Description
The record is a 64-nucleotide RNA sequence from Acipenser ruthenus, which matches "Selenocysteine insertion sequence 1" in Rfam. The family's consensus secondary structure is taken from published work. The incorporation of selenocysteine into a protein sequence is directed by an in-frame UGA codon (usually a stop codon) within the coding region of the mRNA. Selenoprotein mRNAs contain a conserved secondary structure in the 3' UTR that is required for the distinction of UGA stop from UGA selenocysteine. The selenocysteine insertion sequence (SECIS) is around 60 nt in length and adopts a hairpin structure which is sufficiently well-defined and conserved to act as a computational screen for selenoprotein genes. It is annotated as a cis-regulatory element. The source organism's lineage runs through Eukaryota, Eumetazoa, Bilateria, Chordata and Acipenser. The match comes from Rfam's covariance-model search (38 bits).

RNA sequence: UGCACGUUAGUGAGGGUGACACAGUAAACCUUUCAGAGGUGUGUGUAGCCUGAUGUCCUGUGCA
Numbered sequence: 001u002g003c004a005c006g007u008u009a010g011u012g013a014g015g016g017u018g019a020c021a022c023a024g025u026a027a028a029c030c031u032u033u034c035a036g037a038g039g040u041g042u043g044u045g046u047a048g049c050c051u052g053a054u055g056u057c058c059u060g061u062g063c064a
Stems, first nucleotide, its partner, number of pairs: 001064005015050003019046005030039003